Ciliate telomerase RNA: a 189-nucleotide RNA sequence from Euplotes eurystomus. Its family is annotated with telomere maintenance via telomerase, telomerase activity and telomerase catalytic core complex in the Gene Ontology. Clan: Telomerase clan. Pairs were carried over by alignment from the consensus structure, which is taken from published work. Rfam's curators write: Telomerase is a ribonucleoprotein reverse transcriptase that synthesises telomeric DNA. Telomerase RNAs differ greatly in sequence and structure between vertebrates, ciliates and yeasts, but they share a 5' pseudoknot structure close to the template sequence. For this family Rfam cites "Ciliate telomerase RNA structural features" (McCormick-Graham and Romero, Nucleic Acids Res, 1995).
RNA sequence: AGUUUCUCGAUAAUUGAUCUGUAGAAUCUGUCAAGCAAAACCCCAAAACCUUACACUGAGAGCAUUUAGCUUGAUUACUCUUUAAAUUAAAUCAGGCAAUAGAGAGAAACUCGAGAGGUGAAAACCCCACAGCAUUCUGAAAUGUAUUUGGGAGUAAUCUCAUAUUGGUUUGCUGUCCUCUCAUCUUUU
Numbered sequence: 001a002g003u004u005u006c007u008c009g010a011u012a013a014u015u016g017a018u019c020u021g022u023a024g025a026a027u028c029u030g031u032c033a034a035g036c037a038a039a040a041c042c043c044c045a046a047a048a049c050c051u052u053a054c055a056c057u058g059a060g061a062g063c064a065u066u067u068a069g070c071u072u073g074a075u076u077a078c079u080c081u082u083u084a085a086a087u088u089a090a091a092u093c094a095g096g097c098a099a100u101a102g103a104g105a106g107a108a109a110c111u112c113g114a115g116a117g118g119u120g121a122a123a124a125c126c127c128c129a130c131a132g133c134a135u136u137c138u139g140a141a142a143u144g145u146a147u148u149u150g151g152g153a154g155u156a157a158u159c160u161c162a163u164a165u166u167g168g169u170u171u172g173c174u175g176u177c178c179u180c181u182c183a184u185c186u187u188u189u
Base pairs, nucleotide, nucleotide: 006104007103008102010100011099019030021028065077070096071095072094074092075091114181115180116179117178118177129176130175131174132173133172137168138167139166140165